[Rfam]
RNA sequence: UUGGCUCCGGUUCACGACGGUGCCUGCGCGCGCGCAGGCCGGGUCGACCCGGCGGCC
Numbered sequence: 001u002u003g004g005c006u007c008c009g010g011u012u013c014a015c016g017a018c019g020g021u022g023c024c025u026g027c028g029c030g031c032g033c034g035c036a037g038g039c040c041g042g043g044u045c046g047a048c049c050c051g052g053c054g055g056c057c
Stems, first nucleotide, its partner, number of pairs: 003057003007052004015046004022039007
L31-Actinobacteria ribosomal protein leader: a 57-nucleotide sequence. Rfam classes the family as a cis-regulatory leader. Its Rfam clan is "Ribosomal Protein L31 Leader clan".